[Rfam]
RNA sequence: AUUAUAACCGGGGUCGGGAACCUCAAAAAUUAAU
Numbered sequence: 001a002u003u004a005u006a007a008c009c010g011g012g013g014u015c016g017g018g019a020a021c022c023u024c025a026a027a028a029a030u031u032a033a034u
Stems, first nucleotide, its partner, number of pairs: 001034004005029001010024005

Rfam assigns this 34-nucleotide RNA from Marixanthomonas spongiae to the family "S16-Flavobacteria ribosomal protein leader".
By type it is a cis-regulatory leader.
On this family, see Eckert and Weinberg, BMC Microbiol 2020: "Discovery of 20 novel ribosomal leader candidates in bacteria and archaea".